[Rfam]
RNA sequence: CAAUUUUUAAAGCUAUUUUAGAAUUUGUCUAACAGGUUUUCCGUUUUGUUUUGUUUUUUACUGGAAAUCCCUC
Number, nucleotide and partner (000 for none) at each position: 001c000002a000003a000004u000005u000006u000007u000008u000009a000010a000011a000012g000013c000014u000015a000016u000017u000018u000019u000020a000021g000022a000023a000024u000025u000026u000027g000028u000029c000030u000031a000032a000033c000034a000035g070036g069037u000038u067039u066040u065041c064042c063043g000044u000045u060046u000047u000048g000049u000050u000051u000052u000053g000054u000055u000056u000057u000058u000059u000060a045061c000062u000063g042064g041065a040066a039067a038068u000069c036070c035071c000072u000073c000